[Rfam]
RNA sequence: GAUAGUAAUAGUAUGGUCGAACGAUUCAAAAAUUAAUCGUUCAAUCAUACUAUCCAUUUUUAUUAUUGUAAUCUAGAAAGAUACAAAC
Numbered sequence: 001g002a003u004a005g006u007a008a009u010a011g012u013a014u015g016g017u018c019g020a021a022c023g024a025u026u027c028a029a030a031a032a033u034u035a036a037u038c039g040u041u042c043a044a045u046c047a048u049a050c051u052a053u054c055c056a057u058u059u060u061u062a063u064u065a066u067u068g069u070a071a072u073c074u075a076g077a078a079a080g081a082u083a084c085a086a087a088c
Stems, first nucleotide, its partner, number of pairs: 008053010019042008
Shown here is an 88-nucleotide RNA from Acer saccharum, a member of the family "Plastid-psbM 3UTR RNA". For this family Rfam cites "Retrograde signaling in plants: A critical review focusing on the GUN pathway and beyond" (Richter et al., Plant Commun, 2023).